[Rfam]
Nucleotides: 061
Base pairs, nucleotide, nucleotide: 017045018044019043020042021041023039024038025037026036027035
Number, partner (000 for none) and nucleotide at each position: 001000u002000g003000c004000g005000a006000u007000c008000c009000c010000c011000a012000u013000a014000a015000a016000a017045g018044g019043a020042g021041u022000a023039g024038u025037c026036c027035c028000c029000c030000a031000a032000c033000c034000c035027g036026g037025g038024g039023c040000g041021a042020c043019u044018u045017c046000c047000c048000a049000u050000u051000a052000u053000u054000c055000u056000g057000a058000a059000u060000u061000c